Overview
Rfam assigns this 54-nucleotide sequence from Carassius auratus to the family "UnaL2 LINE 3' element". The base pairs follow the family's consensus structure, which is taken from published work. About the family: The eel long interspersed element (LINE) UnaL2 and its partner short interspersed element (SINE) share a conserved 3' tail containing a stem-loop that is critical for their retrotransposition. Presumably, the first step of retrotransposition is the recognition of their 3' tails by UnaL2-encoded reverse transcriptase. The solution structure of a 17-nucleotide RNA derived from the 3' tail of UnaL2 was determined by NMR. Rfam classes the family as a cis-regulatory element.
RNA sequence: AUUGUUCUUAUUUGUAAGUUGCUUUGGAUAAAAGCAUCUGCUAAAUGAUUAAAU
Numbered sequence: 001a002u003u004g005u006u007c008u009u010a011u012u013u014g015u016a017a018g019u020u021g022c023u024u025u026g027g028a029u030a031a032a033a034g035c036a037u038c039u040g041c042u043a044a045a046u047g048a049u050u051a052a053a054u
Base pairs, nucleotide, nucleotide: 013043014041015040016039020036021035022034023033024032025031